[Rfam]
RNA: L17-Actino-Proteobacteria ribosomal protein leader
RNA sequence: CGACCGGCACAGUGCCGGUCGUCUACCCGGGUACCUGACACGGCCCGAGAGA
Dot-bracket structure: (((((((((...)))))))))(((.(.(((((..........))))).))))